This 72-nucleotide RNA sequence from Butyrivibrio sp. ob235 belongs to the Rfam family "tRNA". It scores 58 bits against the family's covariance model. Its Rfam clan is "tRNA clan". The source organism's lineage runs through Bacteria, Clostridia, Lachnospirales, Lachnospiraceae and Butyrivibrio. Its family is annotated with triplet codon-amino acid adaptor activity in the Gene Ontology.

Nucleotides: 072
Base pairs, nucleotide, nucleotide: 001071002070003069004068005067006066007065010025011024012023027043028042029041030040031039048064049063050062051061052060
Number, partner (000 for none) and nucleotide at each position: 001071g002070g003069c004068u005067c006066u007065a008000u009000a010025g011024u012023a013000u014000a015000a016000a017000g018000g019000c020000u021000a022000u023012u024011a025010u026000g027043c028042c029041g030040g031039a032000c033000u034000g035000u036000c037000u038000a039031u040030c041029c042028g043027g044000a045000g046000a047000u048064c049063a050062g051061a052060g053000u054000u055000c056000g057000a058000u059000u060052c061051u062050c063049u064048g065007u066006a067005g068004a069003g070002u071001c072000g